[Rfam]
RNA sequence: CUGUGAAUAUUCUCUGUGUUCUGAUUAUGUGAGAGCCAGGACAGGCUAAACAUUUGCUACAUUAAGACCAUGCAUGUGUACCCAGAUGUAGCCCAUUCCCUAGCUCUGGUCUUAUAAAUGCUGGUGAUAAAC
Numbered sequence: 001c002u003g004u005g006a007a008u009a010u011u012c013u014c015u016g017u018g019u020u021c022u023g024a025u026u027a028u029g030u031g032a033g034a035g036c037c038a039g040g041a042c043a044g045g046c047u048a049a050a051c052a053u054u055u056g057c058u059a060c061a062u063u064a065a066g067a068c069c070a071u072g073c074a075u076g077u078g079u080a081c082c083c084a085g086a087u088g089u090a091g092c093c094c095a096u097u098c099c100c101u102a103g104c105u106c107u108g109g110u111c112u113u114a115u116a117a118a119u120g121c122u123g124g125u126g127a128u129a130a131a132c
Base pairs, nucleotide, nucleotide: 003057004056005055017043018042019041020040021039022038023037025035026034067125068124069123070122072121073120082109083108084107085106086105089102090101091100

Small nucleolar RNA SNORA72: a 132-nucleotide RNA. Rfam's curators write: U72 is a member of the H/ACA class of snoRNAs. The snoRNA gene is located in intron 4 of the ribosomal L30 protein gene in human, mouse and chicken. Rfam links the family to the GO terms nucleolus and RNA processing. The literature on the family includes a 1997 paper in Genes Dev by Ganot et al., "The family of box ACA small nucleolar RNAs is defined by an evolutionarily conserved secondary structure and ubiquitous sequence elements essential for RNA accumulation". By type it is an H/ACA-box small nucleolar RNA. Pairs were carried over by alignment from the consensus structure, which was predicted with PFOLD.